[Rfam]
RNA sequence: ACACUUUUUUUUCACUUGCAGCCGUCAUAUAUUCAAAUCGCUGGAGCGAUCCAGCUAUGGCGAUAAACGCGGUCGUAAUAAGCCGUUCGGACCCGGGGGCGGUACCCGGCGCCUCCACCACAUGCCCACGCGCAAAAUGCGAAAGAGCCGUUUGGCCGCGUGUGCGUGGGUAUCUGAUGGGGGCGAAAUAGGAUCGACGAAGGUGUAAAGGGCUUAGCUUUUGCUCGGCAUGGUUCCGCCGUUAUCGGGCCGAUCAUAAUAGUUGCAAAUGACAACUAUGCUGAGGCCGCUGUCGCUGCGUAAUGCAGUGCCAAAAGCCUGAACUUGAAGUCCUUAUCCUAGCUGGGUAAGGCGCGGUAUCGGAGGGCACCGGGCAACAGAAGCCCUCCACU
Numbered sequence: 001a002c003a004c005u006u007u008u009u010u011u012u013c014a015c016u017u018g019c020a021g022c023c024g025u026c027a028u029a030u031a032u033u034c035a036a037a038u039c040g041c042u043g044g045a046g047c048g049a050u051c052c053a054g055c056u057a058u059g060g061c062g063a064u065a066a067a068c069g070c071g072g073u074c075g076u077a078a079u080a081a082g083c084c085g086u087u088c089g090g091a092c093c094c095g096g097g098g099g100c101g102g103u104a105c106c107c108g109g110c111g112c113c114u115c116c117a118c119c120a121c122a123u124g125c126c127c128a129c130g131c132g133c134a135a136a137a138u139g140c141g142a143a144a145g146a147g148c149c150g151u152u153u154g155g156c157c158g159c160g161u162g163u164g165c166g167u168g169g170g171u172a173u174c175u176g177a178u179g180g181g182g183g184c185g186a187a188a189u190a191g192g193a194u195c196g197a198c199g200a201a202g203g204u205g206u207a208a209a210g211g212g213c214u215u216a217g218c219u220u221u222u223g224c225u226c227g228g229c230a231u232g233g234u235u236c237c238g239c240c241g242u243u244a245u246c247g248g249g250c251c252g253a254u255c256a257u258a259a260u261a262g263u264u265g266c267a268a269a270u271g272a273c274a275a276c277u278a279u280g281c282u283g284a285g286g287c288c289g290c291u292g293u294c295g296c297u298g299c300g301u302a303a304u305g306c307a308g309u310g311c312c313a314a315a316a317g318c319c320u321g322a323a324c325u326u327g328a329a330g331u332c333c334u335u336a337u338c339c340u341a342g343c344u345g346g347g348u349a350a351g352g353c354g355c356g357g358u359a360u361c362g363g364a365g366g367g368c369a370c371c372g373g374g375c376a377a378c379a380g381a382a383g384c385c386c387u388c389c390a391c392u
Stems, first nucleotide, its partner, number of pairs: 040055005059225005069218002071214004083203002087200003093109005110185007226241004231252003235249003355372004362389006

Shown here is a 392-nucleotide RNA from Candidatus Filomicrobium marinum, a member of the family "Alphaproteobacteria transfer-messenger RNA". On this family, see Mao et al., RNA Biol 2010: "Variations on the tmRNA gene". Bacterial tmRNA, also known as 10Sa RNA or SsrA, is named for its dual tRNA and mRNA-like properties. Its role is to liberate the mRNA from a stalled ribosome. To accomplish this part of the tmRNA is used as a reading frame that ends in a translation stop signal. The broken mRNA is replaced in the ribosome by the tmRNA and translation of the tmRNA leads to addition of a proteolysis tag to the incomplete protein enabling recognition by a protease.